[Rfam]
RNA sequence: UGAACUAAGAUUGGCUUGAACAAAGCAAGCUCAAAAUAGUUUAAUAAAAAUAAAUCCUCUUUUGCAACCCAGAACUCAUUGUUCAGUAUAAGUUUUAGUACAUAUAAGAAAGAAUAUU
Number, nucleotide and partner (000 for none) at each position: 001u043002g042003a041004a040005c039006u038007a037008a000009g000010a000011u000012u000013g000014g030015c029016u028017u027018g026019a000020a000021c000022a000023a000024a000025g000026c018027a017028a016029g015030c014031u000032c000033a000034a000035a000036a000037u007038a006039g005040u004041u003042u002043a001044a000045u000046a000047a000048a000049a000050a000051u000052a000053a000054a115055u114056c000057c112058u111059c000060u109061u108062u107063u106064g105065c000066a000067a000068c000069c000070c000071a096072g095073a094074a093075c092076u091077c000078a089079u088080u000081g000082u000083u000084c000085a000086g000087u000088a079089u078090a000091a076092g075093u074094u073095u072096u071097a000098g000099u000100a000101c000102a000103u000104a000105u064106a063107a062108g061109a060110a000111a058112g057113a000114a055115u054116a000117u000118u000
The family of this 118-nucleotide RNA sequence from Aotus nancymaae is "Small nucleolar RNA SNORA40". From the family's description: The snoRNA ACA 40 belongs to the H/ACA family of snoRNAs and guides the pseudouridylation of 28S rRNA subunit at position U4565. NB This family has a high threshold value to exclude a large number of closely related sequences that do not appear to have conserved H and ACA boxes, and may be pseudogenes. The family's consensus secondary structure was predicted with RNAalifold. For this family Rfam cites "Mapping to nucleotide resolution of pseudouridine residues in large subunit ribosomal RNAs from representative eukaryotes, prokaryotes, archaebacteria, mitochondria and chloroplasts" (Ofengand and Bakin, J Mol Biol, 1997). The source organism's lineage runs through Eukaryota, Craniata, Gnathostomata, Amniota and Aotus. Rfam 15.1 lists 2,550 matches to the family in 517 species. Rfam classes the family as an H/ACA-box small nucleolar RNA.